[Rfam]
The record is a 45-nucleotide RNA from Oryza meridionalis, which matches "Guanidine-II riboswitch aptamer (mini-ykkC)" in Rfam. Pairs were carried over by alignment from the consensus structure, which is taken from published work. The source organism's lineage runs through Eukaryota, Spermatophyta, Magnoliopsida, Oryzeae and Oryza. On this family, see Sherlock et al., Biochemistry 2017: "Biochemical Validation of a Second Guanidine Riboswitch Class in Bacteria".
RNA sequence: GGCGGGACGACCCGCCUCCCCUGCUGCACCGUCGGGACGGCCUGC
Numbered sequence: 001g002g003c004g005g006g007a008c009g010a011c012c013c014g015c016c017u018c019c020c021c022u023g024c025u026g027c028a029c030c031g032u033c034g035g036g037a038c039g040g041c042c043u044g045c
Base pairs, nucleotide, nucleotide: 001016002015003014004013005012006011033044034043035042036041